Glycine riboswitch aptamer: a 117-nucleotide RNA from Streptomyces spongiae. The source organism's lineage runs through Bacteria, Bacillati, Actinomycetota, Kitasatosporales and Streptomyces. It scores 67 bits against the family's covariance model. Its family is annotated with glycine biosynthetic process in the Gene Ontology.
RNA sequence: UGAAUCCGCGCGGGAGAGUUCCCAGCCGAGUACGGUGCGUACUUCGCGUACGUCUGGGACGCCGAAGGAGCAAGUCCCUCCCUUGAAUCUCUCAGGCCCAUUUACCGCGCGGGCGAG
Numbered sequence: 001u002g003a004a005u006c007c008g009c010g011c012g013g014g015a016g017a018g019u020u021c022c023c024a025g026c027c028g029a030g031u032a033c034g035g036u037g038c039g040u041a042c043u044u045c046g047c048g049u050a051c052g053u054c055u056g057g058g059a060c061g062c063c064g065a066a067g068g069a070g071c072a073a074g075u076c077c078c079u080c081c082c083u084u085g086a087a088u089c090u091c092u093c094a095g096g097c098c099c100a101u102u103u104a105c106c107g108c109g110c111g112g113g114c115g116a117g
Base pairs, nucleotide, nucleotide: 006112007111008110009109010108011107012106013105020059021058022057023056024055025054061097062096063095064093065092068091069090070089074084